Shown here is a 187-nucleotide RNA from Oryza sativa, a member of the family "MIR812 microRNA precursor family". NCBI's taxonomy places the organism under Eukaryota, Spermatophyta, Petrosaviidae, Oryzoideae, Oryza. Pairs were carried over by alignment from the consensus structure, which was predicted with RNAalifold. Its family is annotated with RISC complex and miRNA-mediated post-transcriptional gene silencing in the Gene Ontology.

[Rfam]
RNA sequence: AGUCAUACGUUUCCGCGUCCAACUUUGAUCGUCCGUCUUAUUUGAAAUUUUUUUAUAAUUAGUAUUUUUGUUGUUAUGAGAUAAUAAAAUAUGAAUAGUACUUUACUCGUGACUUAUGUUUUUAAUUUUUUUUAAAAAAAAUUCAAAUAAGACGAACGGUUAAAGUUGGACGCGGAAAACUAUAGCU
Numbered sequence: 001a002g003u004c005a006u007a008c009g010u011u012u013c014c015g016c017g018u019c020c021a022a023c024u025u026u027g028a029u030c031g032u033c034c035g036u037c038u039u040a041u042u043u044g045a046a047a048u049u050u051u052u053u054u055a056u057a058a059u060u061a062g063u064a065u066u067u068u069u070g071u072u073g074u075u076a077u078g079a080g081a082u083a084a085u086a087a088a089a090u091a092u093g094a095a096u097a098g099u100a101c102u103u104u105a106c107u108c109g110u111g112a113c114u115u116a117u118g119u120u121u122u123u124a125a126u127u128u129u130u131u132u133u134a135a136a137a138a139a140a141a142u143u144c145a146a147a148u149a150a151g152a153c154g155a156a157c158g159g160u161u162a163a164a165g166u167u168g169g170a171c172g173c174g175g176a177a178a179a180c181u182a183u184a185g186c187u
Stems, first nucleotide, its partner, number of pairs: 018170015034154008